About this RNA:
Shown here is a 126-nucleotide sequence from Actinomarinicola tropica, a member of the family "FMN riboswitch aptamer (RFN element)". Rfam 15.1 lists 6,230 matches to the family in 5,120 species. A search with the family's covariance model found it, with a score of 104 bits. Lineage of the source: Bacteria > Bacillati > Actinomycetota > Iamiaceae > Actinomarinicola.
RNA sequence: CAUCUCUCGCAGGGCAGGGUGAAAGUCCCGACCGGCGGUGACAGUCCGCGAACCCCGACCUCGGUCGGGGCCGACCCGGUGGAACUCCGGGACCGACGGUGAGAGUCCGGAUGGGAGCGAGAGCCG
Numbered sequence: 001c002a003u004c005u006c007u008c009g010c011a012g013g014g015c016a017g018g019g020u021g022a023a024a025g026u027c028c029c030g031a032c033c034g035g036c037g038g039u040g041a042c043a044g045u046c047c048g049c050g051a052a053c054c055c056c057g058a059c060c061u062c063g064g065u066c067g068g069g070g071c072c073g074a075c076c077c078g079g080u081g082g083a084a085c086u087c088c089g090g091g092a093c094c095g096a097c098g099g100u101g102a103g104a105g106u107c108c109g110g111a112u113g114g115g116a117g118c119g120a121g122a123g124c125c126g
Base pairs, nucleotide, nucleotide: 004123005122006121007120008119009118010117017029018028019027031106032105033095034094035049036048037047038046044093045092053070054069075091076090077089078088079087097109098108099107